Rfam assigns this 166-nucleotide RNA sequence from Castor canadensis to the family "Small Cajal body specific RNA 1". Lineage of the source: Eukaryota > Chordata > Theria > Glires > Castor. Pairs were carried over by alignment from the consensus structure, which was predicted with RNAalifold. About the family: scaRNAs are a specific class of small nuclear RNAs which localise to the Cajal bodies and guide the modification of RNA polymerase II transcribed spliceosomal RNAs U1, U2, U4, U5 and U12. ACA35 belong to the H/ACA box class of guide RNAs as it has the predicted hairpin-hinge-hairpin-tail structure, conserved H/ACA-box motifs and is found associated with GAR1. It is predicted to guide pseudouridylation of the U2 spliceosomal snRNA at residue U89. The match comes from Rfam's covariance-model search (136 bits). Its family is annotated with Cajal body, RNA processing and nucleolus in the Gene Ontology.
RNA sequence: CAGCAUAUGAUAACUGGCCAAGCUAUCUACUCCAUAGCCUGUGUCAAAAGCUUGUGCUAUGUUGUGAUAGCUGGGUUGAAGAAAUGCAAUAUUAAAAAAAAAGCCAUGAGUCUUUUAAGCCCAGUGUGUAAAGACAUACUCUGAGUUAUAACUCAUAGCCACAACU
Numbered sequence: 001c002a003g004c005a006u007a008u009g010a011u012a013a014c015u016g017g018c019c020a021a022g023c024u025a026u027c028u029a030c031u032c033c034a035u036a037g038c039c040u041g042u043g044u045c046a047a048a049a050g051c052u053u054g055u056g057c058u059a060u061g062u063u064g065u066g067a068u069a070g071c072u073g074g075g076u077u078g079a080a081g082a083a084a085u086g087c088a089a090u091a092u093u094a095a096a097a098a099a100a101a102a103g104c105c106a107u108g109a110g111u112c113u114u115u116u117a118a119g120c121c122c123a124g125u126g127u128g129u130a131a132a133g134a135c136a137u138a139c140u141c142u143g144a145g146u147u148a149u150a151a152c153u154c155a156u157a158g159c160c161a162c163a164a165c166u
Base pairs, nucleotide, nucleotide: 003087004086005085006084008082016077017076018075019074021072022071023070024069025068026067027066028061029060033056036052037051038050040048103160105158124139125138126137127136128135129134140157142155143154144153145152146151